[Rfam]
RNA: FuFi-1 RNA
RNA sequence: GCGUAACGCGCUAUGGCUUAAACGGCUGCCCCAAAGCUGCCAAAGGUUACGGCAAGUCCACAGAAUUGCAAGUUCGUUUUGCAAGCGGCGGAUGCGCAUUGCACAAAGGACCGUGUACUUGCCCGCUCACAUUGGGCGGUUCCGUUGCUGCAAACUUGUUCUGGUAAAAAACUUUGGGAAAAAUCCGUCUGCUAACGAACAGCAGGCGGAUUUUU
Numbered sequence: 001g002c003g004u005a006a007c008g009c010g011c012u013a014u015g016g017c018u019u020a021a022a023c024g025g026c027u028g029c030c031c032c033a034a035a036g037c038u039g040c041c042a043a044a045g046g047u048u049a050c051g052g053c054a055a056g057u058c059c060a061c062a063g064a065a066u067u068g069c070a071a072g073u074u075c076g077u078u079u080u081g082c083a084a085g086c087g088g089c090g091g092a093u094g095c096g097c098a099u100u101g102c103a104c105a106a107a108g109g110a111c112c113g114u115g116u117a118c119u120u121g122c123c124c125g126c127u128c129a130c131a132u133u134g135g136g137c138g139g140u141u142c143c144g145u146u147g148c149u150g151c152a153a154a155c156u157u158g159u160u161c162u163g164g165u166a167a168a169a170a171a172c173u174u175u176g177g178g179a180a181a182a183a184u185c186c187g188u189c190u191g192c193u194a195a196c197g198a199a200c201a202g203c204a205g206g207c208g209g210a211u212u213u214u215u
Stems, first nucleotide, its partner, number of pairs: 002051006024041003028037001031177005053158005066084006072200007085148008181213013